[Rfam]
RNA: c-di-GMP-I riboswitch aptamer
RNA sequence: UGCAAGUCAAGGCAAAACCAUUGAAAAAUGGUGACGCAAAGCUAUAGGGGCUUCAAUGCCAGCCAGCUGCCGGA
Number, nucleotide and partner (000 for none) at each position: 001u000002g000003c000004a000005a000006g000007u000008c000009a000010a000011g000012g037013c036014a000015a000016a000017a032018c031019c030020a029021u028022u027023g000024a000025a000026a000027a022028a021029u020030g019031g018032u017033g000034a000035c000036g013037c012038a000039a000040a068041g067042c066043u065044a000045u000046a000047g064048g063049g060050g059051c058052u000053u000054c000055a000056a000057u000058g051059c050060c049061a000062g000063c048064c047065a043066g042067c041068u040069g000070c000071c000072g000073g000074a000